[Rfam]
Record summary:
Shown here is a 68-nucleotide RNA sequence from Mycobacterium marinum, a member of the family "ASdes TB sRNA". The literature on the family includes a 2009 paper in Mol Microbiol by Arnvig and Young, "Identification of small RNAs in Mycobacterium tuberculosis". The organism belongs to Mycobacterium marinum, within Bacteria. It is one of the family's seed sequences.
RNA sequence: AGCUCGACCGGGUCGACGGAGCGGGUCACCACCAGGUAGUCACGCAGCGCGAUGCCGUGUCGGUUCUC
Numbered sequence: 001a002g003c004u005c006g007a008c009c010g011g012g013u014c015g016a017c018g019g020a021g022c023g024g025g026u027c028a029c030c031a032c033c034a035g036g037u038a039g040u041c042a043c044g045c046a047g048c049g050c051g052a053u054g055c056c057g058u059g060u061c062g063g064u065u066c067u068c
Base pairs, nucleotide, nucleotide: 004063005062006061008059011030012029013028015027016026017025035056036055037054038053040052041051043049044048